This 82-nucleotide RNA sequence from Erysipelatoclostridium sp. AM42-17 belongs to the Rfam family "c-di-GMP-I riboswitch aptamer". Rfam links the family to the GO term cyclic-di-GMP binding. Pairs were carried over by alignment from the consensus structure, which is taken from published work. The source organism's lineage runs through Bacteria, Bacillati, Erysipelotrichales, Coprobacillaceae and Thomasclavelia. A search with the family's covariance model found it, with a score of 62 bits.

RNA sequence: GGUAAAUAUUGGCAAAACUAUUGAAAAAUAGUGACGCAAAGCUACAGAGCUGAACCAUAGAGAAGCUGGCUGAGUUGCAUUU
Numbered sequence: 001g002g003u004a005a006a007u008a009u010u011g012g013c014a015a016a017a018c019u020a021u022u023g024a025a026a027a028a029u030a031g032u033g034a035c036g037c038a039a040a041g042c043u044a045c046a047g048a049g050c051u052g053a054a055c056c057a058u059a060g061a062g063a064a065g066c067u068g069g070c071u072g073a074g075u076u077g078c079a080u081u082u
Base pairs, nucleotide, nucleotide: 012037013036017032018031019030020029021028022027040076041075042074043073045072046071047070048067049066050065056060